Shown here is a 117-nucleotide RNA from Acanthosepion pharaonis, a member of the family "mir-2513 microRNA precursor family". The base pairs follow the family's consensus structure, which was predicted with RNAalifold. Gene Ontology terms of the family: RISC complex and miRNA-mediated post-transcriptional gene silencing.
[Rfam]
RNA sequence: UCAACGUCGGACGUUUCGGUCUAAUAAACCAUCUUCAGGACAUAUUCAUAAAAAAUAUAAUUAACAUUAUGAAUAUGUCCUGAAGAUGGUUUAUUAGACCGAAACGUCCGACGUUGA
Numbered sequence: 001u002c003a004a005c006g007u008c009g010g011a012c013g014u015u016u017c018g019g020u021c022u023a024a025u026a027a028a029c030c031a032u033c034u035u036c037a038g039g040a041c042a043u044a045u046u047c048a049u050a051a052a053a054a055a056u057a058u059a060a061u062u063a064a065c066a067u068u069a070u071g072a073a074u075a076u077g078u079c080c081u082g083a084a085g086a087u088g089g090u091u092u093a094u095u096a097g098a099c100c101g102a103a104a105c106g107u108c109c110g111a112c113g114u115u116g117a
Stems, first nucleotide, its partner, number of pairs: 001117028030088002033085015
Rfam 15.1 lists 40 matches to the family in 11 species.